[Rfam]
Nucleotides: 107
Base pairs, nucleotide, nucleotide: 001107002106003105004104005103010095011094012093013092014091015090016089017088018087019085020084021083025054026053028052029051030050031049032048033047034046038101039100040099042097058082059081061079
Number, partner (000 for none) and nucleotide at each position: 001107g002106g003105u004104a005103g006000a007000g008000u009000a010095g011094a012093u013092a014091u015090u016089g017088c018087g019085c020084g021083u022000u023000a024000a025054g026053u027000g028052u029051c030050a031049u032048g033047g034046a035000a036000u037000g038101g039100g040099a041000a042097g043000u044000u045000g046034u047033c048032c049031a050030u051029g052028a053026a054025c055000g056000a057000a058082g059081g060000u061079g062000u063000c064000c065000g066000g067000g068000u069000u070000u071000c072000c073000a074000g075000g076000a077000u078000u079061u080000u081059c082058c083021a084020c085019g086000a087018u088017g089016c090015a091014a092013u093012a094011u095010u096000g097042c098000g099040u100039c101038c102000g103005c104004u105003a106002c107001u